sRNA regulator of biofilms A: a 227-nucleotide RNA sequence from Pseudomonas putida. The organism belongs to Pseudomonas putida, within Bacteria. It scores 94 bits against the family's covariance model. Pairs were carried over by alignment from the consensus structure, which was predicted with R-scape. For this family Rfam cites "A novel small RNA is important for biofilm formation and pathogenicity in Pseudomonas aeruginosa" (Taylor et al., PLoS One, 2017).
[Rfam]
RNA sequence: AUCAGGGGCCCUGGCAAGGGCCUUCGGGGCGCGCUCCUUCCACCCCAGGAGGCGCCUCGUGUCUAUACGGCCCACAAGGCGGUUCGACGGGAUUGCGACUGCAACGAAGAAGUUGUCCCGAGGGACGGAAGCGCAUCACCGCAGUACUGGCAAUCGCGUCGCACCGCAGCAAGGCAACCACGAGCCGACCUGCCGGAGCACACCUUCGCCUGGUCUGCCCACCCUUC
Numbered sequence: 001a002u003c004a005g006g007g008g009c010c011c012u013g014g015c016a017a018g019g020g021c022c023u024u025c026g027g028g029g030c031g032c033g034c035u036c037c038u039u040c041c042a043c044c045c046c047a048g049g050a051g052g053c054g055c056c057u058c059g060u061g062u063c064u065a066u067a068c069g070g071c072c073c074a075c076a077a078g079g080c081g082g083u084u085c086g087a088c089g090g091g092a093u094u095g096c097g098a099c100u101g102c103a104a105c106g107a108a109g110a111a112g113u114u115g116u117c118c119c120g121a122g123g124g125a126c127g128g129a130a131g132c133g134c135a136u137c138a139c140c141g142c143a144g145u146a147c148u149g150g151c152a153a154u155c156g157c158g159u160c161g162c163a164c165c166g167c168a169g170c171a172a173g174g175c176a177a178c179c180a181c182g183a184g185c186c187g188a189c190c191u192g193c194c195g196g197a198g199c200a201c202a203c204c205u206u207c208g209c210c211u212g213g214u215c216u217g218c219c220c221a222c223c224c225u226u227c
Stems, first nucleotide, its partner, number of pairs: 005024008028056004035051001037049001058149002061147002064144001070080003082140001086137002088133002118128002157161001166193004173186003199217002203213002
The family's RNA type in Rfam is small RNA. From the family's description: Important for biofilm formation and pathogenicity. Bacterial strain with deleted SrbA had reduced biofilm mass. As the ability to form biofilms can contribute to the ability a pathogen to thrive within the host, the C. elegans hosts infected with the srbA deleted strain displayed significantly lower mortality rate than the wild-type strain. However, the deletion of srbA had no effect on growth or antibiotic resistance in P. aeruginosa.